[Rfam]
RNA: U11 spliceosomal RNA
Organism: Pogona vitticeps
RNA sequence: AAAAAGGGCUUCUGUUGUGAGUAUUACAUACUGAGAGAUGGCUGUGGCUUUAUUGUUUUCUGUGCAGAAUUGCUCUCAAGAGAUUUCGGAAGCAUAAUUUUGCUAUACUUUUAAAUCACAAUGAAAAAGUGAUUUGUUUUCCU
Numbered sequence: 001a002a003a004a005a006g007g008g009c010u011u012c013u014g015u016u017g018u019g020a021g022u023a024u025u026a027c028a029u030a031c032u033g034a035g036a037g038a039u040g041g042c043u044g045u046g047g048c049u050u051u052a053u054u055g056u057u058u059u060c061u062g063u064g065c066a067g068a069a070u071u072g073c074u075c076u077c078a079a080g081a082g083a084u085u086u087c088g089g090a091a092g093c094a095u096a097a098u099u100u101u102g103c104u105a106u107a108c109u110u111u112u113a114a115a116u117c118a119c120a121a122u123g124a125a126a127a128a129g130u131g132a133u134u135u136g137u138u139u140u141c142c143u
Stems, first nucleotide, its partner, number of pairs: 008093005013026002016023002027064004033058003037054005065088001067086005113139002117136002120133001122132001124130001
Dot-bracket structure: .......(((((((.((....)).))((((..(((.(((((........))))).)))..))))(.(((((..........))))).))))))...................((..((.(.(.(.....).)).)).))....